[Rfam]
RNA sequence: CCCGCCACUAUGCCUGUCCUCACUCCCGUGGCCGGUAUAUUCCAGUGGUGAGCUGAGAGGAAGCCCCAGCCCAGGAAGCAGUCCUCUUCUGGCUGUGGGGAGGCCUGUGCCGAAAGGCUGGGAACAGGA
Number, nucleotide and partner (000 for none) at each position: 001c000002c000003c000004g000005c048006c047007a046008c045009u044010a000011u000012g000013c000014c000015u000016g000017u000018c035019c034020u000021c031022a029023c028024u000025c000026c000027c000028g023029u022030g000031g021032c000033c000034g019035g018036u000037a000038u000039a000040u000041u000042c000043c000044a009045g008046u007047g006048g005049u000050g000051a000052g000053c000054u000055g000056a000057g000058a000059g000060g000061a000062a000063g000064c122065c121066c120067c000068a119069g000070c116071c000072c000073a000074g111075g110076a000077a000078g000079c107080a106081g105082u000083c103084c102085u000086c000087u099088u098089c097090u000091g000092g000093c000094u000095g000096u000097g089098g088099g087100g000101a000102g084103g083104c000105c081106u080107g079108u000109g000110c075111c074112g000113a000114a000115a000116g070117g000118c000119u068120g066121g065122g064123a000124a000125c000126a000127g000128g000129a000
RNA: Small nucleolar RNA SNORA65
Organism: Calidris pygmaea